[Rfam]
RNA: Bradyrhizobiaceae sRNA BjrC80
RNA sequence: GAAUGGGAGGGCAGUGUCGGCACAAUCGCCCCCGCCGACACCGCCUUCCUUGGGGGUGGGUCGUAAACCUGCCCCCGUGACUACCUUCCGGUGGAAAACGCCCCCCUCCGUCGGGAGGUCAAAGGGCGGUGAGGUCCCCCCAGCUUCACCGCCCGCUUUU
Numbered sequence: 001g002a003a004u005g006g007g008a009g010g011g012c013a014g015u016g017u018c019g020g021c022a023c024a025a026u027c028g029c030c031c032c033c034g035c036c037g038a039c040a041c042c043g044c045c046u047u048c049c050u051u052g053g054g055g056g057u058g059g060g061u062c063g064u065a066a067a068c069c070u071g072c073c074c075c076c077g078u079g080a081c082u083a084c085c086u087u088c089c090g091g092u093g094g095a096a097a098a099c100g101c102c103c104c105c106c107u108c109c110g111u112c113g114g115g116a117g118g119u120c121a122a123a124g125g126g127c128g129g130u131g132a133g134g135u136c137c138c139c140c141c142a143g144c145u146u147c148a149c150c151g152c153c154c155g156c157u158u159u160u
Stems, first nucleotide, its partner, number of pairs: 009046004014041002017038004052076010082121001084118002088114004093109003124154012